[Rfam]
The record is a 75-nucleotide RNA sequence from Geoalkalibacter ferrihydriticus, which matches "c-di-GMP-I-GGC riboswitch aptamer" in Rfam. Pairs were carried over by alignment from the consensus structure, which is taken from published work. The source organism's lineage runs through Bacteria, Thermodesulfobacteriota, Desulfuromonadales, Geoalkalibacter and Geoalkalibacter ferrihydriticus.
RNA sequence: UCGGACAAAGCCAAACCCGUCGCGAGGCGGGGACGGAAAGCCACGGGUCUCUUGCAGACAGCCGGGUUGCCCUUC
Numbered sequence: 001u002c003g004g005a006c007a008a009a010g011c012c013a014a015a016c017c018c019g020u021c022g023c024g025a026g027g028c029g030g031g032g033a034c035g036g037a038a039a040g041c042c043a044c045g046g047g048u049c050u051c052u053u054g055c056a057g058a059c060a061g062c063c064g065g066g067u068u069g070c071c072c073u074u075c
Base pairs, nucleotide, nucleotide: 003072004071011036012035016031017030018029019028020027021026034061039068040067041066042065044064045063046062047059048058049057